A member of the RNA family "permuted transfer-messenger RNA" from Pannonibacter phragmitetus, 216 nucleotides long. Gene Ontology term of the family: RNA catabolic process.
RNA sequence: GGCGAUAAAUUGACUGUGUAAUAAGCCUAUCGGACCCGGGGGCGGUACCCGGCGCCUCCACCCAAGCCCACCCCAGCGGUGGGUUUCGGCGGGGGCGAAAUAGGAUCGACGAGGGUGUAAAGACUGCUCUUUCGCUCGGCAUGGUACCACCGAUAUCGGACCAAAUCUGUAGUUGCAAACGACAACUAUGCUCAGGACGUCGCUCUCGCCGCGUAA
Numbered sequence: 001g002g003c004g005a006u007a008a009a010u011u012g013a014c015u016g017u018g019u020a021a022u023a024a025g026c027c028u029a030u031c032g033g034a035c036c037c038g039g040g041g042g043c044g045g046u047a048c049c050c051g052g053c054g055c056c057u058c059c060a061c062c063c064a065a066g067c068c069c070a071c072c073c074c075a076g077c078g079g080u081g082g083g084u085u086u087c088g089g090c091g092g093g094g095g096c097g098a099a100a101u102a103g104g105a106u107c108g109a110c111g112a113g114g115g116u117g118u119a120a121a122g123a124c125u126g127c128u129c130u131u132u133c134g135c136u137c138g139g140c141a142u143g144g145u146a147c148c149a150c151c152g153a154u155a156u157c158g159g160a161c162c163a164a165a166u167c168u169g170u171a172g173u174u175g176c177a178a179a180c181g182a183c184a185a186c187u188a189u190g191c192u193c194a195g196g197a198c199g200u201c202g203c204u205c206u207c208g209c210c211g212c213g214u215a216a
Stems, first nucleotide, its partner, number of pairs: 001136005014126001016124002026115003030112003036052005053097007137152003
Taxonomically the source falls in Pannonibacter (Bacteria, Pseudomonadota, Alphaproteobacteria, Hyphomicrobiales). By type it is a non-coding RNA gene.